[Rfam]
RNA sequence: UUUGGGUUGAUGGAGCUUCCUUUUAUCCAACUUAGAGAUGGUAGAGAGGUGAUUACGUCUGCUAGUUCAUGAAUACCUUUGGGGUGCACAAGUUUGGAAUGUUGUGCAUUUUUAAGGGUUUGCAUGACUUAGGAGAUGAUGUUGCCUUCUUUUUUUCUUACUUGGAUUGAAGGGAGCUCCAAGGGCCAAUCUC
Numbered sequence: 001u002u003u004g005g006g007u008u009g010a011u012g013g014a015g016c017u018u019c020c021u022u023u024u025a026u027c028c029a030a031c032u033u034a035g036a037g038a039u040g041g042u043a044g045a046g047a048g049g050u051g052a053u054u055a056c057g058u059c060u061g062c063u064a065g066u067u068c069a070u071g072a073a074u075a076c077c078u079u080u081g082g083g084g085u086g087c088a089c090a091a092g093u094u095u096g097g098a099a100u101g102u103u104g105u106g107c108a109u110u111u112u113u114a115a116g117g118g119u120u121u122g123c124a125u126g127a128c129u130u131a132g133g134a135g136a137u138g139a140u141g142u143u144g145c146c147u148u149c150u151u152u153u154u155u156u157c158u159u160a161c162u163u164g165g166a167u168u169g170a171a172g173g174g175a176g177c178u179c180c181a182a183g184g185g186c187c188a189a190u191c192u193c
Base pairs, nucleotide, nucleotide: 013179014178015177016176017175018174019173020172023169025167026166027165028164029163036156059135060134062132063131064130068126069125070124071123076118
This 193-nucleotide RNA sequence from Kingdonia uniflora belongs to the Rfam family "MIR159 microRNA precursor family". Rfam links the family to the GO terms miRNA-mediated post-transcriptional gene silencing and RISC complex. For this family Rfam cites "Computational identification of plant microRNAs and their targets, including a stress-induced miRNA" (Jones-Rhoades and Bartel, Mol Cell, 2004). Lineage of the source: Eukaryota > Streptophyta > Embryophyta > Spermatophyta > Kingdonia.